mir-8517 microRNA precursor family: a 100-nucleotide sequence from Plutella xylostella. The source organism's lineage runs through Eukaryota, Hexapoda, Eumetabola, Yponomeutoidea and Plutella. It scores 80 bits against the family's covariance model.

[Rfam]
RNA sequence: UGGCUGGACGCUUUAGCUAAUGAACUGUUUUGUCACUCUCUGACAGAGAACAAUUUGACAGAGAGUGACAAACAGUUCAAUAACUAAAGCAUCCAGUCAC
Numbered sequence: 001u002g003g004c005u006g007g008a009c010g011c012u013u014u015a016g017c018u019a020a021u022g023a024a025c026u027g028u029u030u031u032g033u034c035a036c037u038c039u040c041u042g043a044c045a046g047a048g049a050a051c052a053a054u055u056u057g058a059c060a061g062a063g064a065g066u067g068a069c070a071a072a073c074a075g076u077u078c079a080a081u082a083a084c085u086a087a088a089g090c091a092u093c094c095a096g097u098c099a100c
Stems, first nucleotide, its partner, number of pairs: 001099006011089006018082002021079008029062007